[Rfam]
RNA sequence: CACCAGGUUGAUUCUGCCUGACAUAGACACUGGUCUUUCAGACUAAGCCAUGCAUGACGAGCACACGGAAGGAAGCGUCAGAGAGCUCAGGGACGCAGUUUUGACCGGCUUGGAGAACAGGGGCGGACAUCCGAGGAAACCUUCGGCCAAGACGACGCAGGGCGGGGGGCAUCCACGGAGAAGCAGGACGCCAGAGCAGCGCAGGGCGCAGCCAAACGGGAGACUGUCCUAUUAGCUUGUGGGUGGGGUCAGGGCCUACCCAGGCGACGAUGGGUACGAGGGAUGAGGGUUUUGUCUCGGAGAACGGGUGUGAGAAGCAGCCCGUAGAUCCAAGGAUCGCAGCAGGCGCGGAACUUGCUCACUUCCCAGGGGGAGAAGCAGUGAGGAGACAUACGGAGAAAGAGCCCGCGACAAAAGAGCGGGCGAGAAGCAAUUGGAGGGCAAGACUGGUGCCAGCAGCCGCGGUAAUACCAGCUUCAAAAGUGUCUGUGGUGUGUGUUG
Number, nucleotide and partner (000 for none) at each position: 001c000002a000003c000004c020005a019006g018007g017008u016009u000010g000011a000012u000013u000014c000015u000016g008017c007018c006019u005020g004021a000022c491023a490024u489025a488026g487027a486028c485029a484030c483031u482032g000033g390034u389035c388036u387037u386038u385039c383040a382041g349042a000043c000044u000045a000046a000047g347048c346049c345050a000051u344052g343053c342054a000055u000056g079057a078058c000059g000060a000061g076062c075063a000064c000065a000066c071067g000068g000069a000070a000071g066072g000073a000074a000075g062076c061077g000078u057079c056080a000081g000082a000083g000084a000085g000086c302087u301088c300089a000090g000091g000092g000093a000094c000095g227096c226097a225098g224099u223100u222101u221102u220103g000104a000105c219106c218107g000108g000109c000110u215111u214112g213113g212114a000115g000116a000117a000118c000119a000120g000121g000122g000123g000124c154125g153126g000127a000128c000129a000130u000131c146132c145133g144134a143135g142136g141137a000138a000139a000140c000141c136142u135143u134144c133145g132146g131147c000148c000149a000150a000151g000152a000153c125154g124155a000156c000157g000158c000159a000160g000161g000162g000163c000164g000165g000166g000167g000168g000169g000170c000171a000172u000173c000174c000175a000176c000177g000178g000179a000180g000181a000182a000183g000184c000185a000186g000187g000188a000189c000190g000191c000192c000193a000194g000195a000196g000197c000198a000199g000200c000201g000202c000203a000204g000205g000206g000207c000208g000209c000210a000211g000212c113213c112214a111215a110216a000217c000218g106219g105220g102221a101222g100223a099224c098225u097226g096227u095228c274229c273230u272231a000232u000233u000234a000235g265236c264237u263238u000239g000240u262241g261242g260243g259244u258245g257246g256247g255248g000249u000250c000251a000252g000253g000254g000255c247256c246257u245258a244259c243260c242261c241262a240263g237264g236265c235266g000267a000268c000269g000270a000271u000272g230273g229274g228275u000276a000277c299278g298279a297280g296281g292282g291283a290284u289285g000286a000287g000288g000289g284290u283291u282292u281293u000294g000295u000296c280297u279298c278299g277300g088301a087302g086303a000304a325305c324306g323307g322308g321309u320310g000311u000312g000313a000314g000315a000316a000317g000318c000319a000320g309321c308322c307323c306324g305325u304326a000327g338328a337329u336330c335331c000332a000333a000334g000335g330336a329337u328338c327339g000340c000341a000342g053343c052344a051345g049346g048347c047348g000349c041350g000351g000352a000353a000354c000355u380356u000357g379358c378359u377360c000361a000362c000363u375364u374365c373366c372367c371368a000369g000370g000371g367372g366373g365374a364375g363376a000377a359378g358379c357380a355381g000382u040383g039384a000385g038386g037387a036388g035389a034390c033391a000392u000393a000394c000395g000396g000397a000398g000399a000400a000401a000402g000403a000404g424405c423406c422407c421408g420409c419410g000411a000412c000413a000414a000415a000416a000417g000418a000419g409420c408421g407422g406423g405424c404425g000426a000427g000428a000429a000430g000431c000432a000433a000434u480435u479436g478437g477438a476439g475440g000441g000442c000443a000444a000445g000446a000447c474448u473449g472450g471451u000452g000453c000454c000455a000456g463457c462458a000459g000460c000461c000462g457463c456464g000465g000466u000467a000468a000469u000470a000471c450472c449473a448474g447475c439476u438477u437478c436479a435480a434481a000482a031483g030484u029485g028486u027487c026488u025489g024490u023491g022492g000493u000494g000495u000496g000497u000498g000499u000500u000501g000